About this RNA:
Rfam assigns this 126-nucleotide RNA sequence from Diabrotica virgifera to the family "Small nucleolar RNA U109". Rfam links the family to the GO terms RNA processing and nucleolus. The match comes from Rfam's covariance-model search (44 bits). Taxonomically the source falls in Diabrotica virgifera (Eukaryota, Ecdysozoa, Allotriocarida, Pterygota). The base pairs follow the family's consensus structure, which was predicted with WAR.

RNA sequence: UUGUAGUGAAGUGUAUUCAAACUUGCUUGUAGUUUGAGUGGAUCUACACUGCUAUAUAAUAAAUGAAACACAAGGGCCUGGUGUCUUUGAGUAUUGCCUCACAGGUAGUAUAUGUUUCAUACAUUA
Numbered sequence: 001u002u003g004u005a006g007u008g009a010a011g012u013g014u015a016u017u018c019a020a021a022c023u024u025g026c027u028u029g030u031a032g033u034u035u036g037a038g039u040g041g042a043u044c045u046a047c048a049c050u051g052c053u054a055u056a057u058a059a060u061a062a063a064u065g066a067a068a069c070a071c072a073a074g075g076g077c078c079u080g081g082u083g084u085c086u087u088u089g090a091g092u093a094u095u096g097c098c099u100c101a102c103a104g105g106u107a108g109u110a111u112a113u114g115u116u117u118c119a120u121a122c123a124u125u126a
Base pairs, nucleotide, nucleotide: 003052004051005050006049018036019035020034021033022032023031064119065118066117067116076106077105080102081100083098085096